The family of this 93-nucleotide RNA from Thermoactinomyces sp. AS95 is "Glycine riboswitch aptamer".
[Rfam]
RNA sequence: UUGAAGGCGGGAGGAGAGACCACAUCCGUGGCGCCGAAGGAGCAAGCCUUGGAAGAAGGCGAAUCUCUCAGGCAAAAGGAGGCCCGCUGGACG
Numbered sequence: 001u002u003g004a005a006g007g008c009g010g011g012a013g014g015a016g017a018g019a020c021c022a023c024a025u026c027c028g029u030g031g032c033g034c035c036g037a038a039g040g041a042g043c044a045a046g047c048c049u050u051g052g053a054a055g056a057a058g059g060c061g062a063a064u065c066u067c068u069c070a071g072g073c074a075a076a077a078g079g080a081g082g083c084c085c086g087c088u089g090g091a092c093g
Stems, first nucleotide, its partner, number of pairs: 006088006020031004033073003036069002040067003046060005
From the family's description: This family represents the bacterial glycine riboswitch.